[Rfam]
This 90-nucleotide RNA from Acuticoccus sediminis belongs to the Rfam family "chrB-a RNA". The source organism's lineage runs through Bacteria, Pseudomonadota, Alphaproteobacteria, Amorphaceae and Acuticoccus. The base pairs follow the family's consensus structure, which is taken from published work.
RNA sequence: CAGAUGGGGACCUGCGAUCUCCCCACGAGGCGCCAGCCCAAGCAUCGCGUUCCGCAAUAUCCCCCGCAUUCGGGAAGGAACGCAUUUAUG
Numbered sequence: 001c002a003g004a005u006g007g008g009g010a011c012c013u014g015c016g017a018u019c020u021c022c023c024c025a026c027g028a029g030g031c032g033c034c035a036g037c038c039c040a041a042g043c044a045u046c047g048c049g050u051u052c053c054g055c056a057a058u059a060u061c062c063c064c065c066g067c068a069u070u071c072g073g074g075a076a077g078g079a080a081c082g083c084a085u086u087u088a089u090g
Base pairs, nucleotide, nucleotide: 005025006024007023008022009021010020047083048082049081050080051079052078